Background
chrB-a RNA: an 84-nucleotide sequence from Siccirubricoccus deserti. The organism belongs to Siccirubricoccus, within Bacteria. It is annotated as a cis-regulatory element. The family has 163 seed sequences and 347 matches in Rfam 15.1. It scores 68 bits against the family's covariance model.
RNA sequence: GCCAGGGGGCAUCCGCGAUCGCCCCGUGAGGCGUCAGCCCAAGCAUCGCGUCCACCUUCCGACUGCCGGAAUGGACGCCCCGUG
Number, nucleotide and partner (000 for none) at each position: 001g000002c000003c000004a000005g000006g025007g024008g023009g022010c021011a000012u000013c000014c000015g000016c000017g000018a000019u000020c000021g010022c009023c008024c007025c006026g000027u000028g000029a000030g000031g000032c000033g000034u000035c000036a000037g000038c000039c000040c000041a000042a000043g000044c000045a000046u000047c000048g078049c077050g076051u075052c074053c073054a000055c000056c000057u000058u000059c000060c000061g000062a000063c000064u000065g000066c000067c000068g000069g000070a000071a000072u000073g053074g052075a051076c050077g049078c048079c000080c000081c000082g000083u000084g000